RNA: mir-277 microRNA precursor family
Organism: Agrilus planipennis
RNA sequence: GGGUGGUCGGGAUGCGUGCCAGAAGCGCGUUUACAUACAGUGUCAUUCAUCUGUAAAUGCACUAUCUGGUACGACAUUGCGCCAUUC
Numbered sequence: 001g002g003g004u005g006g007u008c009g010g011g012a013u014g015c016g017u018g019c020c021a022g023a024a025g026c027g028c029g030u031u032u033a034c035a036u037a038c039a040g041u042g043u044c045a046u047u048c049a050u051c052u053g054u055a056a057a058u059g060c061a062c063u064a065u066c067u068g069g070u071a072c073g074a075c076a077u078u079g080c081g082c083c084a085u086u087c
Stems, first nucleotide, its partner, number of pairs: 008081002011078001015073009025062001027060009